[Rfam]
RNA sequence: AUACUUAUGUGGGAGGGGAGAUAACAUGAUCACCAAGGUGGUUUCCCCAGGGUGAGGAUUAUCCAUUGCUCUGCAGAUGUGUUGACCCCUACGAUUUCCCUAAAUAUGAAAAACUCAGCUGCAUGAUUUAUGGUAGUGGGGGGCUGCUUUUGCAUUUUCCCCUG
Numbered sequence: 001a002u003a004c005u006u007a008u009g010u011g012g013g014a015g016g017g018g019a020g021a022u023a024a025c026a027u028g029a030u031c032a033c034c035a036a037g038g039u040g041g042u043u044u045c046c047c048c049a050g051g052g053u054g055a056g057g058a059u060u061a062u063c064c065a066u067u068g069c070u071c072u073g074c075a076g077a078u079g080u081g082u083u084g085a086c087c088c089c090u091a092c093g094a095u096u097u098c099c100c101u102a103a104a105u106a107u108g109a110a111a112a113a114c115u116c117a118g119c120u121g122c123a124u125g126a127u128u129u130a131u132g133g134u135a136g137u138g139g140g141g142g143g144c145u146g147c148u149u150u151u152g153c154a155u156u157u158u159c160c161c162c163u164g
Stems, first nucleotide, its partner, number of pairs: 012122001014120002016048003020044002023042001025040003049090004054086001056083002060079004093116002095113001096111002100108001138163006146155001
Rfam assigns this 164-nucleotide RNA sequence from Cavia porcellus to the family "U1 spliceosomal RNA".
The organism belongs to Cavia, within Eukaryota.
A search with the family's covariance model found it, with a score of 99 bits.
U1 is a small nuclear RNA (snRNA) component of the spliceosome (involved in pre-mRNA splicing). Its 5' end forms complementary base pairs with the 5' splice junction, thus defining the 5' donor site of an intron.